tRNA: a 71-nucleotide RNA from Aquabacter spiritensis. The family's consensus secondary structure is taken from published work. Rfam describes the family as follows. Transfer RNA (tRNA) molecules are approximately 80 nucleotides in length. Lineage of the source: Bacteria > Pseudomonadati > Pseudomonadota > Alphaproteobacteria > Aquabacter. The match comes from Rfam's covariance-model search (67 bits).
[Rfam]
RNA sequence: UGGGGGAUAGUUCAACGGUAGAACUGCGGACUCUGACUCCGUCAAUCUAGGUUCGAAUCCUAGUCCCCCAG
Numbered sequence: 001u002g003g004g005g006g007a008u009a010g011u012u013c014a015a016c017g018g019u020a021g022a023a024c025u026g027c028g029g030a031c032u033c034u035g036a037c038u039c040c041g042u043c044a045a046u047c048u049a050g051g052u053u054c055g056a057a058u059c060c061u062a063g064u065c066c067c068c069c070a071g
Stems, first nucleotide, its partner, number of pairs: 001070007010024004026042005047063005